[Rfam]
RNA sequence: AAGCCGAGCGUUGUACCCAGGGUCUGUGGGGCAGACAUUGCACCUGGCGCUUGCUGGAAUAAAACCCCCUGGUUU
Numbered sequence: 001a002a003g004c005c006g007a008g009c010g011u012u013g014u015a016c017c018c019a020g021g022g023u024c025u026g027u028g029g030g031g032c033a034g035a036c037a038u039u040g041c042a043c044c045u046g047g048c049g050c051u052u053g054c055u056g057g058a059a060u061a062a063a064a065c066c067c068c069c070u071g072g073u074u075u
Stems, first nucleotide, its partner, number of pairs: 005053005017047004022036005